[Rfam]
RNA sequence: CGAGUAAGCCAGACAAUCGCUGCUGAGAAAUCAGGAGAGGAAAGUCCGAGCUCCAUAGGGCAGGGUGCUGGGUAACUCCCAGUGAAGGCGACUUUAAGGAAAGUGCAACAGAGAUAUACCGCCUUAAUGACUUUUUUAGAGGAAUACAUUCUAACAAGUUAGAAUGUAUAAAUUCCACUAACCAAAUCGUAGAUUUGGAGUGUCAUUUAAGGUAAGGGUGGAAAGGCGAGGUAAGAGCUCACCAGCGCAAUGGCGACUUUGCGGCUAUGUAAACCCCAUCUGGAGCAAGAUCGAAAGUGGAACAUUAUGGGGCUGCCCGUCCCGUUCCCGGGUGUAUCGCUUGAGCCCAUUAGUAAUAAUGGGCCUAGAUAGAUGAUUGUCUAACACAGAACUCGGCUUAUAGGUUUACUCGACCC
Numbered sequence: 001c002g003a004g005u006a007a008g009c010c011a012g013a014c015a016a017u018c019g020c021u022g023c024u025g026a027g028a029a030a031u032c033a034g035g036a037g038a039g040g041a042a043a044g045u046c047c048g049a050g051c052u053c054c055a056u057a058g059g060g061c062a063g064g065g066u067g068c069u070g071g072g073u074a075a076c077u078c079c080c081a082g083u084g085a086a087g088g089c090g091a092c093u094u095u096a097a098g099g100a101a102a103g104u105g106c107a108a109c110a111g112a113g114a115u116a117u118a119c120c121g122c123c124u125u126a127a128u129g130a131c132u133u134u135u136u137u138a139g140a141g142g143a144a145u146a147c148a149u150u151c152u153a154a155c156a157a158g159u160u161a162g163a164a165u166g167u168a169u170a171a172a173u174u175c176c177a178c179u180a181a182c183c184a185a186a187u188c189g190u191a192g193a194u195u196u197g198g199a200g201u202g203u204c205a206u207u208u209a210a211g212g213u214a215a216g217g218g219u220g221g222a223a224a225g226g227c228g229a230g231g232u233a234a235g236a237g238c239u240c241a242c243c244a245g246c247g248c249a250a251u252g253g254c255g256a257c258u259u260u261g262c263g264g265c266u267a268u269g270u271a272a273a274c275c276c277c278a279u280c281u282g283g284a285g286c287a288a289g290a291u292c293g294a295a296a297g298u299g300g301a302a303c304a305u306u307a308u309g310g311g312g313c314u315g316c317c318c319g320u321c322c323c324g325u326u327c328c329c330g331g332g333u334g335u336a337u338c339g340c341u342u343g344a345g346c347c348c349a350u351u352a353g354u355a356a357u358a359a360u361g362g363g364c365c366u367a368g369a370u371a372g373a374u375g376a377u378u379g380u381c382u383a384a385c386a387c388a389g390a391a392c393u394c395g396g397c398u399u400a401u402a403g404g405u406u407u408a409c410u411c412g413a414c415c416c
Stems, first nucleotide, its partner, number of pairs: 001412010011401001012381007020037002023034004042399003046396005051285004058318004063281005068082005083097001084095004098276002103274002105270003119217002121213007225243002228240003245265001246263005252257001289338003299328005309323005345364008
Rfam assigns this 416-nucleotide RNA from Clostridium sulfidigenes to the family "Bacterial RNase P class A". Rfam describes the family as follows. Ribonuclease P (RNase P) is a ubiquitous endoribonuclease, found in archaea, bacteria and eukarya as well as chloroplasts and mitochondria. The family's consensus secondary structure is taken from published work. Taxonomically the source falls in Clostridium (Bacteria, Bacillati, Eubacteriales, Clostridiaceae).